[Rfam]
RNA sequence: AACUUAAUACGAACAAAUACUCAUAUAAUCUCGGUAAUAUGGACCGAAAGUUUCUACCGGGCAACCGUAAAUUGUCUGCCUAUGGGUGAAGUCUAAUAUAGU
Numbered sequence: 001a002a003c004u005u006a007a008u009a010c011g012a013a014c015a016a017a018u019a020c021u022c023a024u025a026u027a028a029u030c031u032c033g034g035u036a037a038u039a040u041g042g043a044c045c046g047a048a049a050g051u052u053u054c055u056a057c058c059g060g061g062c063a064a065c066c067g068u069a070a071a072u073u074g075u076c077u078g079c080c081u082a083u084g085g086g087u088g089a090a091g092u093c094u095a096a097u098a099u100a101g102u
Base pairs, nucleotide, nucleotide: 018088019087020086021085022084023083024082025081029049031047032046033045034044035043058078059077060076061075062074063073064072
This 102-nucleotide RNA sequence from Anaeromicrobium sediminis belongs to the Rfam family "Purine riboswitch aptamer".
NCBI's taxonomy places the organism under Bacteria, Bacillati, Bacillota, Clostridia, Anaeromicrobium.